A member of the RNA family "Glycine riboswitch aptamer" from Roseibium limicola, 92 nucleotides long. Taxonomically the source falls in Roseibium (Bacteria, Pseudomonadota, Hyphomicrobiales, Stappiaceae). The base pairs follow the family's consensus structure. Gene Ontology term of the family: glycine biosynthetic process.

Nucleotides: 092
Stems, first nucleotide, its partner, number of pairs: 006087008020037004039072003042068002046066003052060002
Number, partner (000 for none) and nucleotide at each position: 001000a002000a003000a004000a005000c006087c007086c008085u009084a010083g011082c012081g013080g014000g015000a016000g017000a018000g019000g020037c021036c022035g023034g024000g025000u026000g027000a028000a029000a030000a031000a032000c033000a034023c035022c036021g037020g038000c039072g040071c041070c042068g043067a044000a045000g046066g047065a048064g049000c050000a051000a052060c053059c054000g055000c056000c057000c058000c059053g060052g061000a062000a063000a064048c065047u066046c067043u068042c069000a070041g071040g072039c073000a074000a075000a076000a077000g078000g079000a080013c081012c082011g083010c084009u085008g086007g087006g088000a089000c090000a091000c092000a